[Rfam]
RNA sequence: UACUGCCAAACCCUAUCUCCACCUCCACGUGGUGAUUGCCGGGAGGUCUUUCUUCAUGAAAAACUGCAGACGGAGAAGG
Numbered sequence: 001u002a003c004u005g006c007c008a009a010a011c012c013c014u015a016u017c018u019c020c021a022c023c024u025c026c027a028c029g030u031g032g033u034g035a036u037u038g039c040c041g042g043g044a045g046g047u048c049u050u051u052c053u054u055c056a057u058g059a060a061a062a063a064c065u066g067c068a069g070a071c072g073g074a075g076a077a078g079g
Base pairs, nucleotide, nucleotide: 012079013078014077016075018073019072021033022032023031045065046064047063049061050060051059052058
This 79-nucleotide RNA from Hermetia illucens belongs to the Rfam family "drz-agam-1 ribozyme". The family has 7 seed sequences and 10,507 matches in Rfam 15.1. The base pairs follow the family's consensus structure, which is taken from published work. The match comes from Rfam's covariance-model search (43 bits). Rfam links the family to the GO term catalytic activity. On this family, see Webb et al., Science 2009: "Widespread occurrence of self-cleaving ribozymes".